[Rfam]
RNA sequence: CUGACCCGCGCGGGAGAGUUUGCUGCUGAUUCGCAUAUGUGAAAAAAGCAGUGACGCCGAAGGAGCAACCGCCCCGGAAUCUCUCAGGCUAAAGGACCGCACGGGGUCU
Numbered sequence: 001c002u003g004a005c006c007c008g009c010g011c012g013g014g015a016g017a018g019u020u021u022g023c024u025g026c027u028g029a030u031u032c033g034c035a036u037a038u039g040u041g042a043a044a045a046a047a048g049c050a051g052u053g054a055c056g057c058c059g060a061a062g063g064a065g066c067a068a069c070c071g072c073c074c075c076g077g078a079a080u081c082u083c084u085c086a087g088g089c090u091a092a093a094g095g096a097c098c099g100c101a102c103g104g105g106g107u108c109u
Stems, first nucleotide, its partner, number of pairs: 006104003010100004020054008056089003059085002063083003069077002
Annotation: The family of this 109-nucleotide sequence from Novosphingobium sp. AAP1 is "Glycine riboswitch aptamer". Taxonomically the source falls in Novosphingobium (Bacteria, Alphaproteobacteria, Sphingomonadales, Sphingomonadaceae).